[Rfam]
RNA: Bacterial RNase P class A
Organism: Sulfitobacter sp. NAS-14.1
RNA sequence: GCGGAAGGCUGGAUGGCCGCGGUCUUGGCAACAGGGUCGAGGAAAGUCCGGACUCCCAGAAGAAACGGUGCCGGGUAACGCCCGGGCGGGGUAACCCGACGGAAAGCGCCACAGAAAACAGACCGCCGCUUCGACGGGUCGGGCAACCGAUACCACCGGGGAGGUAAGGGUGAAACGGUGCGGUAAGAGCGCACCGCGGAGGUGGUAACAUCUCUGGCAAGGCAAGCCCCACCGGGAGCAAUGCCAAAUAGGGACCGCGCGCCGCGUCUGGCAACAGGCAAGGCGGGGCCACUUCUGCCCCAGCAGGUCCGGGUUGGCAGCUGUAGCUGUGCAGGCAACUGCAUGGUCAGAGGAAUGGUCAUCCCCUGUCGCAAGGCGGGGACAAAAUCCGGCUUAUAGGCCUUCCGCGCAU
Numbered sequence: 001g002c003g004g005a006a007g008g009c010u011g012g013a014u015g016g017c018c019g020c021g022g023u024c025u026u027g028g029c030a031a032c033a034g035g036g037u038c039g040a041g042g043a044a045a046g047u048c049c050g051g052a053c054u055c056c057c058a059g060a061a062g063a064a065a066c067g068g069u070g071c072c073g074g075g076u077a078a079c080g081c082c083c084g085g086g087c088g089g090g091g092u093a094a095c096c097c098g099a100c101g102g103a104a105a106g107c108g109c110c111a112c113a114g115a116a117a118a119c120a121g122a123c124c125g126c127c128g129c130u131u132c133g134a135c136g137g138g139u140c141g142g143g144c145a146a147c148c149g150a151u152a153c154c155a156c157c158g159g160g161g162a163g164g165u166a167a168g169g170g171u172g173a174a175a176c177g178g179u180g181c182g183g184u185a186a187g188a189g190c191g192c193a194c195c196g197c198g199g200a201g202g203u204g205g206u207a208a209c210a211u212c213u214c215u216g217g218c219a220a221g222g223c224a225a226g227c228c229c230c231a232c233c234g235g236g237a238g239c240a241a242u243g244c245c246a247a248a249u250a251g252g253g254a255c256c257g258c259g260c261g262c263c264g265c266g267u268c269u270g271g272c273a274a275c276a277g278g279c280a281a282g283g284c285g286g287g288g289c290c291a292c293u294u295c296u297g298c299c300c301c302a303g304c305a306g307g308u309c310c311g312g313g314u315u316g317g318c319a320g321c322u323g324u325a326g327c328u329g330u331g332c333a334g335g336c337a338a339c340u341g342c343a344u345g346g347u348c349a350g351a352g353g354a355a356u357g358g359u360c361a362u363c364c365c366c367u368g369u370c371g372c373a374a375g376g377c378g379g380g381g382a383c384a385a386a387a388u389c390c391g392g393c394u395u396a397u398a399g400g401c402c403u404u405c406c407g408c409g410c411a412u
Stems, first nucleotide, its partner, number of pairs: 001408010011397001012363007020039008044395003048392005053238004061294002066234005071085005086100001087098004101229002106227002108223003123169002125165003129161005177195006196218001197216008242319004252310005285301005327346008